This 101-nucleotide RNA from Sutcliffiella cohnii belongs to the Rfam family "SAM riboswitch aptamer (S box leader)". Rfam's curators write: The SAM riboswitch is found upstream of a number of genes which code for proteins involved in methionine or cysteine biosynthesis in Gram-positive bacteria. The SAM riboswitch acts at the level of transcription termination control.
[Rfam]
Nucleotides: 101
Base pairs, nucleotide, nucleotide: 001101002100003099004098005097006096007095008094013042014041015040016039017038021031022030023029025075026074027073028072043067044066045065046064048063049062051059052058053057071093076090077089078088079087080086
Number, partner (000 for none) and nucleotide at each position: 001101u002100u003099c004098u005097u006096a007095u008094c009000c010000a011000g012000a013042g014041a015040g016039g017038u018000g019000g020000a021031g022030g023029g024000a025075c026074u027073g028072g029023c030022c031021c032000g033000a034000c035000g036000a037000u038017a039016c040015c041014u042013c043067g044066g045065c046064a047000a048063c049062a050000g051059a052058c053057a054000g055000a056000u057053u058052g059051u060000a061000c062049u063048g064046u065045g066044c067043c068000a069000a070000u071093u072028c073027c074026a075025g076090c077089a078088a079087g080086c081000u082000a083000u084000a085000u086080g087079c088078u089077u090076g091000a092000a093071a094008g095007a096006u097005a098004a099003g100002a101001a